[Rfam]
RNA: mir-181 microRNA precursor family
RNA sequence: AGGCUGCGAUAAACAUUCAUUGCUGUCGGUGGGUUUUUAAUGAGAACAACUCACUGAUCAAUGAAUGCAGACUGCGGCUCA
Dot-bracket structure: .(((((((.....(((((((((..(((((((.(((............))).)))))))))))))))).....))))).)).